[Rfam]
Shown here is a 94-nucleotide sequence from Mikania micrantha, a member of the family "small nucleolar RNA snoR117". By type it is a C/D-box small nucleolar RNA.
RNA sequence: UGCCGAUGAUGUAUGAUGUAUUGUCCGUACCAUAUGAAAGGAUUCUCUCUGAGAUUCUUCAUUGAUUAGUACUCGCAUCCAGUUUCUGAGGCAA
Dot-bracket structure: ((((.....................................................................................)))).

On this family, see Chen and Wu, Nucleic Acids Res 2009: "Mining small RNA sequencing data: a new approach to identify small nucleolar RNAs in Arabidopsis". Taxonomically the source falls in Mikania (Eukaryota, Magnoliopsida, Mesangiospermae, asterids). It scores 46 bits against the family's covariance model.